[Rfam]
Shown here is a 95-nucleotide RNA sequence from Cryptosporangium phraense, a member of the family "ZMP/ZTP riboswitch aptamer (pfl RNA motif)". The base pairs follow the family's consensus structure, which is taken from published work. A search with the family's covariance model found it, with a score of 51 bits.

Nucleotides: 095
Base pairs, nucleotide, nucleotide: 005057008054009053010052011051012050015047016046017083018082019081020080021079030043031042032041033040073089074088075087076086
Number, partner (000 for none) and nucleotide at each position: 001000u002000a003000g004000g005057g006000a007000c008054g009053c010052c011051g012050c013000g014000a015047c016046u017083g018082g019081c020080g021079c022000a023000g024000u025000c026000g027000a028000a029000g030043g031042u032041g033040g034000a035000a036000a037000c038000a039000a040033c041032c042031a043030c044000c045000g046016g047015g048000a049000a050012g051011c052010g053009g054008c055000a056000c057005c058000g059000a060000c061000c062000c063000g064000u065000u066000a067000u068000u069000u070000c071000a072000a073089c074088a075087c076086c077000g078000u079021g080020c081019g082018c083017c084000u085000g086076g087075g088074u089073g090000g091000g092000c093000g094000g095000g

The organism belongs to Cryptosporangium, within Bacteria.